[Rfam]
RNA sequence: AUCGUGCGGCGUCACGGCCAUCUCUUCCCCUGUUGCUCAUGACUGCGCUCUCCAUCGCAAGGUGGAUUGUACACGCAGACGUUCGAGUGUCAGGCCGUGUCCCGAGCAACUGGACGUCUUAGUACCCAUUAUCGUCACUCCGUUCUAUGGAGUGACGAUGGGUCGGUGGUUCCAUACACU
Numbered sequence: 001a002u003c004g005u006g007c008g009g010c011g012u013c014a015c016g017g018c019c020a021u022c023u024c025u026u027c028c029c030c031u032g033u034u035g036c037u038c039a040u041g042a043c044u045g046c047g048c049u050c051u052c053c054a055u056c057g058c059a060a061g062g063u064g065g066a067u068u069g070u071a072c073a074c075g076c077a078g079a080c081g082u083u084c085g086a087g088u089g090u091c092a093g094g095c096c097g098u099g100u101c102c103c104g105a106g107c108a109a110c111u112g113g114a115c116g117u118c119u120u121a122g123u124a125c126c127c128a129u130u131a132u133c134g135u136c137a138c139u140c141c142g143u144u145c146u147a148u149g150g151a152g153u154g155a156c157g158a159u160g161g162g163u164c165g166g167u168g169g170u171u172c173c174a175u176a177c178a179c180u
Stems, first nucleotide, its partner, number of pairs: 020100002023097001035088004043078004112172004129161009139151002
Dot-bracket structure: ...................((.(...........((((....((((............................))))......))))........).))...........((((.............(((((((((.((.........)).))))))))).......))))........

Background
Shown here is a 180-nucleotide sequence from Mycena sanguinolenta, a member of the family "small nucleolar RNA snR35". A reference for the family is Li et al. (2005), "Identification and functional analysis of 20 Box H/ACA small nucleolar RNAs (snoRNAs) from Schizosaccharomyces pombe", J Biol Chem. Clan: SNORA13 clan. NCBI's taxonomy places the organism under Eukaryota, Opisthokonta, Dikarya, Mycenaceae, Mycena. It scores 38 bits against the family's covariance model. The family's RNA type in Rfam is H/ACA-box small nucleolar RNA. Gene Ontology terms of the family: nucleolus and RNA processing.